Bacillaceae-1 RNA: a 68-nucleotide sequence from Bacillus benzoevorans.
It is annotated as a small RNA.
Lineage of the source: Bacteria > Bacillota > Bacilli > Bacillaceae > Bacillus.
Pairs were carried over by alignment from the consensus structure, which is taken from published work.
A search with the family's covariance model found it, with a score of 64 bits.

RNA sequence: CACAGAGGAACUUCGACUAAAUACCGCCACAUCCUGUGGCGAACAUCGAAGUCAGCACAUCCUGUGCA
Numbered sequence: 001c002a003c004a005g006a007g008g009a010a011c012u013u014c015g016a017c018u019a020a021a022u023a024c025c026g027c028c029a030c031a032u033c034c035u036g037u038g039g040c041g042a043a044c045a046u047c048g049a050a051g052u053c054a055g056c057a058c059a060u061c062c063u064g065u066g067c068a
Stems, first nucleotide, its partner, number of pairs: 011051006026040005055067004